The record is a 72-nucleotide sequence from Psychromonas algarum, which matches "Fluoride riboswitch aptamer (crcB RNA motif)" in Rfam. A search with the family's covariance model found it, with a score of 52 bits. Lineage of the source: Bacteria > Pseudomonadati > Pseudomonadota > Alteromonadales > Psychromonas.

[Rfam]
RNA sequence: UAUAUCACGGGUGAUGGAGUUCCACCUUUAACCGCUCAUCUUUUCAGAUGAGAUAAUGACCCCUGCUAGAUA
Numbered sequence: 001u002a003u004a005u006c007a008c009g010g011g012u013g014a015u016g017g018a019g020u021u022c023c024a025c026c027u028u029u030a031a032c033c034g035c036u037c038a039u040c041u042u043u044u045c046a047g048a049u050g051a052g053a054u055a056a057u058g059a060c061c062c063c064u065g066c067u068a069g070a071u072a
Stems, first nucleotide, its partner, number of pairs: 010026004016063002019060003035052007
Dot-bracket structure: .........((((..[[.[[[.))))........(((((((....))))))).....]]].]].........